RNA sequence: AUCACCUAGGGGUCUUAUUAAAAUGAAGAUUCUGAUUCAGUGGCUCUGGACUGGCACCUGUGAGUCUGCAUUUUUAAUAAGCUUCUAUGUGAUGUCAA
Numbered sequence: 001a002u003c004a005c006c007u008a009g010g011g012g013u014c015u016u017a018u019u020a021a022a023a024u025g026a027a028g029a030u031u032c033u034g035a036u037u038c039a040g041u042g043g044c045u046c047u048g049g050a051c052u053g054g055c056a057c058c059u060g061u062g063a064g065u066c067u068g069c070a071u072u073u074u075u076a077a078u079a080a081g082c083u084u085c086u087a088u089g090u091g092a093u094g095u096c097a098a
Stems, first nucleotide, its partner, number of pairs: 003091003009085003014081007021073003025069001027067003031063002